A member of the RNA family "ilvB-OMG RNA" from Kineobactrum salinum, 221 nucleotides long. The organism belongs to Kineobactrum, within Bacteria.
[Rfam]
RNA sequence: GUCUCACUGAUGGUAAUGGCUAUUGCCGGGUACCCCCGGCCACUGGCCUACCGCUGCGAUGUGAUUAUUCGCCGUGGCUGCUGGUGAGUCCCGUAAUCGACCUGCAUCGUAUUGAGCGGGUUGAGGGCCAGAUACUGCGCUACCUCGCAGGGCGACCGAUACACGGGUGUUCGUGAUCGUUUUCCUCAGGGAUAGCCCCUCCGGGCAGCAACCGGCGGGUC
Numbered sequence: 001g002u003c004u005c006a007c008u009g010a011u012g013g014u015a016a017u018g019g020c021u022a023u024u025g026c027c028g029g030g031u032a033c034c035c036c037c038g039g040c041c042a043c044u045g046g047c048c049u050a051c052c053g054c055u056g057c058g059a060u061g062u063g064a065u066u067a068u069u070c071g072c073c074g075u076g077g078c079u080g081c082u083g084g085u086g087a088g089u090c091c092c093g094u095a096a097u098c099g100a101c102c103u104g105c106a107u108c109g110u111a112u113u114g115a116g117c118g119g120g121u122u123g124a125g126g127g128c129c130a131g132a133u134a135c136u137g138c139g140c141u142a143c144c145u146c147g148c149a150g151g152g153c154g155a156c157c158g159a160u161a162c163a164c165g166g167g168u169g170u171u172c173g174u175g176a177u178c179g180u181u182u183u184c185c186u187c188a189g190g191g192a193u194a195g196c197c198c199c200u201c202c203g204g205g206c207a208g209c210a211a212c213c214g215g216c217g218g219g220u221c
Base pairs, nucleotide, nucleotide: 018048019047020046021045022044025040026039027038028037029036030035051077052076053075056072057071058070059069060067088128089127091126092125098123099122100121101120102119103118104117105116148189150187151186152185155183157179158178159177160176162175163174164173165172201215202214203213204212
The match comes from Rfam's covariance-model search (122 bits). The family's RNA type in Rfam is cis-regulatory element.